[Rfam]
Nucleotides: 118
Base pairs, nucleotide, nucleotide: 003072004071005070006069007068008067009066010065011064012063013061015060016059017058019056020055021054022053023052025048026047028045031043032042098116099115100114102113104111105110
Number, partner (000 for none) and nucleotide at each position: 001000a002000c003072g004071a005070g006069a007068u008067g009066c010065c011064c012063u013061c014000c015060u016059g017058g018000a019056u020055u021054g022053g023052g024000g025048a026047u027000a028045c029000g030000g031043a032042c033000c034000u035000u036000a037000g038000a039000a040000a041000a042032g043031u044000c045028g046000u047026a048025u049000u050000a051000u052023c053022c054021c055020a056019g057000u058017u059016c060015a061013g062000a063012a064011g065010g066009g067008c068007a069006u070005u071004u072003c073000c074000c075000u076000u077000a078000u079000u080000c081000c082000c083000a084000c085000g086000c087000c088000g089000u090000u091000a092000c093000c094000g095000a096000c097000c098116g099115g100114a101000c102113u103000g104111c105110a106000u107000c108000g109000g110105u111104g112000g113102a114100u115099c116098c117000g118000g